Shown here is a 146-nucleotide RNA sequence from Aspergillus sclerotialis, a member of the family "A. fumigatus sRNA Afu_254". The family's RNA type in Rfam is small RNA. The literature on the family includes a 2008 paper in Nucleic Acids Res by Jochl et al., "Small ncRNA transcriptome analysis from Aspergillus fumigatus suggests a novel mechanism for regulation of protein synthesis".

RNA sequence: UCUUACAGACAAACUCCCAUCGAAGACCUUUGCCUCCAUUUUAUAAUACCACCCACCUUCACCAUGUCUCCUUGCAACUGCAACUGCUGCUCCGGCAACUGCAACUCUUGCUCCUGCAGCAGCUGCUCUGUACGUAGAUUCAGGGU
Numbered sequence: 001u002c003u004u005a006c007a008g009a010c011a012a013a014c015u016c017c018c019a020u021c022g023a024a025g026a027c028c029u030u031u032g033c034c035u036c037c038a039u040u041u042u043a044u045a046a047u048a049c050c051a052c053c054c055a056c057c058u059u060c061a062c063c064a065u066g067u068c069u070c071c072u073u074g075c076a077a078c079u080g081c082a083a084c085u086g087c088u089g090c091u092c093c094g095g096c097a098a099c100u101g102c103a104a105c106u107c108u109u110g111c112u113c114c115u116g117c118a119g120c121a122g123c124u125g126c127u128c129u130g131u132a133c134g135u136a137g138a139u140u141c142a143g144g145g146u
Base pairs, nucleotide, nucleotide: 073097074096075095080090081089082088101126102125103124110117111116